A member of the RNA family "Bacterial large subunit ribosomal RNA" from Candidatus Tokpelaia sp. JSC161, 228 nucleotides of a longer RNA. Rfam links the family to the GO terms structural constituent of ribosome and ribosome. The organism belongs to Candidatus Tokpelaia, within Bacteria.
RNA sequence: GACUUGGUCUGAUGAGCAAGCUUAAGCCGAUAGGUGUAGGCGUAGCGAAAGCGAGUUUGAAUAGAGCGUUUAGUUCAUCGGAUCAGACCCGAAACCAGGUGAUCUAGCCAUGAGCAGGCUGAAGGUAAGGUAACACUUACUGGAGGGCCGAACCCAUAUCUGUUGCAAUAGAUUGGGAUGACUUGUGGCUAGGGGUGAAAGGCCAAUCAAACCUGGAAAUAGCUGGUU
Numbered sequence: 001g002a003c004u005u006g007g008u009c010u011g012a013u014g015a016g017c018a019a020g021c022u023u024a025a026g027c028c029g030a031u032a033g034g035u036g037u038a039g040g041c042g043u044a045g046c047g048a049a050a051g052c053g054a055g056u057u058u059g060a061a062u063a064g065a066g067c068g069u070u071u072a073g074u075u076c077a078u079c080g081g082a083u084c085a086g087a088c089c090c091g092a093a094a095c096c097a098g099g100u101g102a103u104c105u106a107g108c109c110a111u112g113a114g115c116a117g118g119c120u121g122a123a124g125g126u127a128a129g130g131u132a133a134c135a136c137u138u139a140c141u142g143g144a145g146g147g148c149c150g151a152a153c154c155c156a157u158a159u160c161u162g163u164u165g166c167a168a169u170a171g172a173u174u175g176g177g178a179u180g181a182c183u184u185g186u187g188g189c190u191a192g193g194g195g196u197g198a199a200a201g202g203c204c205a206a207u208c209a210a211a212c213c214u215g216g217a218a219a220u221a222g223c224u225g226g227u228u
Base pairs, nucleotide, nucleotide: 005085006084007083008082009081010080011079012078013077014076015075016074017073020041021040022039023038026035027034028033045052046051055067056066057065058064088226089225091223095216096215097214098213099212100211104192105191106190107189108188109187110186111185112184113183114182115180117149118148119147120146124141125140126139127138128137129136153177154176155175158173159172160171161170194204195203196202